[Rfam]
RNA sequence: UACGUGUUCUGUUAGGUGAGGCUCCUGUAUAGAGAUAAGCUGCUGCCCAAAAAUGUCGAGAGACGCCAAUGGGUCAACAGGAAAGAUCGGAAUAAGGUCUUUCUUAAUGUAGCUGGUACCAGAUUACCUAUGCUAUACAGUGCUAAAGCUCAAGCGAGGGAAACGGAGG
Dot-bracket structure: ....((((.((([.(((..(((..((((((((......(((((.(((((....((((....))))....))))).....((((..(((......])))..))))....))))).(((........)))....)))))))).)))...)))...))....).))))....
RNA: M-box riboswitch aptamer (ykoK leader)
Organism: Heyndrickxia shackletonii